[Rfam]
RNA: Glycine riboswitch aptamer
Nucleotides: 092
Stems, first nucleotide, its partner, number of pairs: 006087008020038004040072003043068002047066003053060001
Number, partner (000 for none) and nucleotide at each position: 001000g002000c003000g004000c005000c006087u007086c008085c009084c010083g011082c012081a013080g014000g015000a016000g017000a018000g019000a020038g021037a022036g023035g024000c025000c026000g027000u028000c029000a030000g031000a032000c033000g034000g035023c036022c037021u038020c039000c040072g041071c042070c043068g044067a045000a046000g047066g048065c049064g050000c051000a052000a053060a054000c055000u056000c057000c058000c059000a060053u061000a062000a063000u064049c065048g066047c067044u068043c069000a070042g071041g072040c073000u074000c075000a076000u077000g078000g079000a080013c081012u082011g083010c084009g085008g086007g087006a088000u089000u090000g091000c092000a